[Rfam]
The family of this 404-nucleotide RNA from Pseudomonas aeruginosa is "Pseudomonas sRNA CrcZ". The family has 19 seed sequences and 127 matches in Rfam 15.1. The literature on the family includes a 2007 paper in Mol Microbiol by Moreno et al., "The Pseudomonas putida Crc global regulator is an RNA binding protein that inhibits translation of the AlkS transcriptional regulator". The organism belongs to Pseudomonas aeruginosa, within Bacteria.
RNA sequence: ACAACAACAAUAACAAGCAACGACGAAGACAAUAAAAACAACACGUAACGACUCCAGCACAACAAAAACAAAAUCGCGGAGGCGCAGCUAACUGAUUCUUUUGGAGAGGAGUUGCUGUCGGGACCCGUCCCGCAGCCAGUCGGAAGAAGAAUAAAACUGCCUCGAGGCAGCGCACAGACUGGUUGGAUCGCUCGACGAUCAUGGCAGCAUCAGCGACCAAAGCAAUCCGUUUGCUAUUGAACUCCCAGCCUGGGAGAUAUCCCUGAAGCGACUGGCUCAAGGGACGGGUCGACAAACAAAAACAACAAGCCCGAAAUCAUAAUAAAAACAAAGCACGCACCUACUUGGGGGGGAGCUUCGGCUCCCCCAGUAGCUUCACCCCUCCCUCCGUUUUCCCCGUUUUU
Dot-bracket structure: ................................................((.((((......................)))).))..............(((((.........(((.................(((((((.................(((((....)))))........)))))))...........................)))..))))).................(..((.(.......).)))......................((((.(((.(..................).))..................((((.............(((((((((....))))))))..).))))....).))))..................